[Rfam]
RNA: Group II catalytic intron D1-D4-4
Organism: Microvirga tunisiensis
RNA sequence: CAGUGGAGGAAGAUUCCACCCAGAGAGUUGUCGAUUGAUCUGGUAGCUGACGAGCGGUUUGGUCGGGUAACCGGUCGGGCCGGAGCCUCGUGACAAAGGUCGCUGGAAGGCGGCUGAGCAAUCCGAUGGGCCGUAACGUGA
Numbered sequence: 001c002a003g004u005g006g007a008g009g010a011a012g013a014u015u016c017c018a019c020c021c022a023g024a025g026a027g028u029u030g031u032c033g034a035u036u037g038a039u040c041u042g043g044u045a046g047c048u049g050a051c052g053a054g055c056g057g058u059u060u061g062g063u064c065g066g067g068u069a070a071c072c073g074g075u076c077g078g079g080c081c082g083g084a085g086c087c088u089c090g091u092g093a094c095a096a097a098g099g100u101c102g103c104u105g106g107a108a109g110g111c112g113g114c115u116g117a118g119c120a121a122u123c124c125g126a127u128g129g130g131c132c133g134u135a136a137c138g139u140g141a
Stems, first nucleotide, its partner, number of pairs: 020043005050091005055082006064073001066071001098115006118134002